[Rfam]
RNA sequence: GCUGCUCGAAUAAUAUCACAUACCUCACUGUGGUGGACAGAUGGCAACGCUGAUAAAGCGGCUAAGAUGUGAAA
Numbered sequence: 001g002c003u004g005c006u007c008g009a010a011u012a013a014u015a016u017c018a019c020a021u022a023c024c025u026c027a028c029u030g031u032g033g034u035g036g037a038c039a040g041a042u043g044g045c046a047a048c049g050c051u052g053a054u055a056a057a058g059c060g061g062c063u064a065a066g067a068u069g070u071g072a073a074a
Stems, first nucleotide, its partner, number of pairs: 002040003006036002022034003048060004